[Rfam]
Notes
Rfam assigns this 135-nucleotide RNA from Myotis lucifugus to the family "Small nucleolar RNA SNORA29". Rfam describes the family as follows. ACA29 is a member of the H/ACA class of snoRNA that guide the sites of modification of uridines to pseudouridines. Rfam classes the family as an H/ACA-box small nucleolar RNA. The family's consensus secondary structure was predicted with PFOLD. A reference for the family is Huttenhofer et al. (2001), "RNomics: an experimental approach that identifies 201 candidates for novel, small, non-messenger RNAs in mouse", EMBO J. The family is grouped with related families in Rfam's "SNORA20 clan". The source organism's lineage runs through Eukaryota, Teleostomi, Mammalia, Boreoeutheria and Myotis. It scores 92 bits against the family's covariance model.
RNA sequence: CUUCCUCUCUGAAAUCAAUAAAAAUAUAUUUUAAAAAUAGACAAACAUAUGGGGGAUAGAUUAAAAUUGCCAUGAUCUGAAGAGGGAGGAUUUAUUUGUGUCCUCCUCCUCUAUGAAAUGGCUGAACGGAAAAAA
Numbered sequence: 001c002u003u004c005c006u007c008u009c010u011g012a013a014a015u016c017a018a019u020a021a022a023a024a025u026a027u028a029u030u031u032u033a034a035a036a037a038u039a040g041a042c043a044a045a046c047a048u049a050u051g052g053g054g055g056a057u058a059g060a061u062u063a064a065a066a067u068u069g070c071c072a073u074g075a076u077c078u079g080a081a082g083a084g085g086g087a088g089g090a091u092u093u094a095u096u097u098g099u100g101u102c103c104u105c106c107u108c109c110u111c112u113a114u115g116a117a118a119u120g121g122c123u124g125a126a127c128g129g130a131a132a133a134a135a
Stems, first nucleotide, its partner, number of pairs: 004055004069122004087110004